Shown here is a 93-nucleotide sequence from Tersicoccus phoenicis, a member of the family "TPP riboswitch aptamer (THI element)". The match comes from Rfam's covariance-model search (67 bits). Lineage of the source: Bacteria > Actinomycetota > Micrococcales > Micrococcaceae > Tersicoccus.

RNA sequence: ACCAGUGACACGGGGUGCCCCCAGCGGGCUGAGAUGACACCCGUCGAACCUGAUCUAGUUAGAACUAGCGAAGGGAUGUCGCCGUGAACGACG
Numbered sequence: 001a002c003c004a005g006u007g008a009c010a011c012g013g014g015g016u017g018c019c020c021c022c023a024g025c026g027g028g029c030u031g032a033g034a035u036g037a038c039a040c041c042c043g044u045c046g047a048a049c050c051u052g053a054u055c056u057a058g059u060u061a062g063a064a065c066u067a068g069c070g071a072a073g074g075g076a077u078g079u080c081g082c083c084g085u086g087a088a089c090g091a092c093g
Base pairs, nucleotide, nucleotide: 006081007080008079009078010077011043012042013041014040016037017029018028019027020026049074050073051072055068056067057066058065